[Rfam]
RNA sequence: GGUUGACUAAGGAGGAAGACAUGGGAUUGACGCGAUCCAUCAACGUCCUAGUGGUCAGUGCAGCAUUCCUAUUCGUUGUGACGAUGCUUUUCAUCUGACGACAUAGCGAACAGUGCAGGAAACCGAACUCCUGAAAGCUAACAAAACACUUAGUCCAUUUAAAAAGCGCAUGUCGCGACCGACAUGCGCUUU
Numbered sequence: 001g002g003u004u005g006a007c008u009a010a011g012g013a014g015g016a017a018g019a020c021a022u023g024g025g026a027u028u029g030a031c032g033c034g035a036u037c038c039a040u041c042a043a044c045g046u047c048c049u050a051g052u053g054g055u056c057a058g059u060g061c062a063g064c065a066u067u068c069c070u071a072u073u074c075g076u077u078g079u080g081a082c083g084a085u086g087c088u089u090u091u092c093a094u095c096u097g098a099c100g101a102c103a104u105a106g107c108g109a110a111c112a113g114u115g116c117a118g119g120a121a122a123c124c125g126a127a128c129u130c131c132u133g134a135a136a137g138c139u140a141a142c143a144a145a146a147c148a149c150u151u152a153g154u155c156c157a158u159u160u161a162a163a164a165a166g167c168g169c170a171u172g173u174c175g176c177g178a179c180c181g182a183c184a185u186g187c188g189c190u191u192u
Base pairs, nucleotide, nucleotide: 014047015046024038025037026036163192164191165190166189167188168187169186170185171184172183173182174181175180
RNA: Rhizobiales sRNA Atu_C9